[Rfam]
T-box leader: a 241-nucleotide sequence from Thermoclostridium caenicola. By type it is a cis-regulatory leader. The family's consensus secondary structure is taken from published work. About the family: Uncharged tRNA acts as the effector for transcription antitermination of genes in the T-box leader family. NCBI's taxonomy places the organism under Bacteria, Bacillati, Bacillota, Oscillospiraceae, Thermoclostridium. Rfam 15.1 lists 19,395 matches to the family in 1,923 species.

RNA sequence: GAUAAAGCGAUGAUCGGUACGAGUAGGGUUCCGGAAGCCUUACAGAGAGCGGGGGCAGGUGAAAGCCCGCAGGACAGGGGAUCCGAAAAUCCACCGUGAGCAGCAGCCUGAAAGGCUCAGCGAGCCAACUAAGGUGAGCCGGUAUGAGACCGUUACCCUCAAAACAAGUGGCCCUAUCAUCCGGAAGGGAGAUAGGGCAAUUUGGGUGGUACCGCGGAAAGCAGAGCCUUUCGUCCCAUGG
Numbered sequence: 001g002a003u004a005a006a007g008c009g010a011u012g013a014u015c016g017g018u019a020c021g022a023g024u025a026g027g028g029u030u031c032c033g034g035a036a037g038c039c040u041u042a043c044a045g046a047g048a049g050c051g052g053g054g055g056c057a058g059g060u061g062a063a064a065g066c067c068c069g070c071a072g073g074a075c076a077g078g079g080g081a082u083c084c085g086a087a088a089a090u091c092c093a094c095c096g097u098g099a100g101c102a103g104c105a106g107c108c109u110g111a112a113a114g115g116c117u118c119a120g121c122g123a124g125c126c127a128a129c130u131a132a133g134g135u136g137a138g139c140c141g142g143u144a145u146g147a148g149a150c151c152g153u154u155a156c157c158c159u160c161a162a163a164a165c166a167a168g169u170g171g172c173c174c175u176a177u178c179a180u181c182c183g184g185a186a187g188g189g190a191g192a193u194a195g196g197g198c199a200a201u202u203u204g205g206g207u208g209g210u211a212c213c214g215c216g217g218a219a220a221g222c223a224g225a226g227c228c229u230u231u232c233g234u235c236c237c238a239u240g241g
Stems, first nucleotide, its partner, number of pairs: 007101002015096004026084006038073003049070005104138001106135004140152003171198007203238004214234005